[Rfam]
RNA sequence: AUAUAAUAAUCAAGUGAGCUUGAGACAGUGGGUGCUCGUGAGAGCACAAAGGCCCAGCCGCCCACCGAGGUUCAGGAGAAAAACGUCGCGCCGUCAGGUGCGGCAUUUGACGCGUUGACUAACGCUCUCCCGCCUCCGGACGGGAGAGUUUUUUGUUUGAGGA
Numbered sequence: 001a002u003a004u005a006a007u008a009a010u011c012a013a014g015u016g017a018g019c020u021u022g023a024g025a026c027a028g029u030g031g032g033u034g035c036u037c038g039u040g041a042g043a044g045c046a047c048a049a050a051g052g053c054c055c056a057g058c059c060g061c062c063c064a065c066c067g068a069g070g071u072u073c074a075g076g077a078g079a080a081a082a083a084c085g086u087c088g089c090g091c092c093g094u095c096a097g098g099u100g101c102g103g104c105a106u107u108u109g110a111c112g113c114g115u116u117g118a119c120u121a122a123c124g125c126u127c128u129c130c131c132g133c134c135u136c137c138g139g140a141c142g143g144g145a146g147a148g149u150u151u152u153u154u155g156u157u158u159g160a161g162g163a
Stems, first nucleotide, its partner, number of pairs: 028065006034045003125148008134139001
Dot-bracket structure: ...........................(((((((((......)))..............))))))...........................................................((((((((.(....).))))))))...............